[Rfam]
RNA sequence: AUAGAGACUAGAGUCUCGCCUCGACACACGGGUUGUCUUGGUGUGCUAGAGCUCUCUUAGAUCAACGACUGGUCCUACUCUCCGACUGGCCCUCUGGUUGGUCAGUCACCCACAUGGGCAGUUACAGUC
Numbered sequence: 001a002u003a004g005a006g007a008c009u010a011g012a013g014u015c016u017c018g019c020c021u022c023g024a025c026a027c028a029c030g031g032g033u034u035g036u037c038u039u040g041g042u043g044u045g046c047u048a049g050a051g052c053u054c055u056c057u058u059a060g061a062u063c064a065a066c067g068a069c070u071g072g073u074c075c076u077a078c079u080c081u082c083c084g085a086c087u088g089g090c091c092c093u094c095u096g097g098u099u100g101g102u103c104a105g106u107c108a109c110c111c112a113c114a115u116g117g118g119c120a121g122u123u124a125c126a127g128u129c
Stems, first nucleotide, its partner, number of pairs: 003057004008051002012047002015045001017043004023037004069121003073117002084107002087104005

A member of the RNA family "Small nucleolar RNA SNORA3/SNORA45 family" from Gadus morhua, 129 nucleotides long. The family is grouped with related families in Rfam's "SNORA3 clan". The members of this family belong to the H/ACA class of snoRNAs which are thought to guide the sites of modification of uridines to pseudouridines. Gene Ontology terms of the family: RNA processing and nucleolus. It scores 56 bits against the family's covariance model.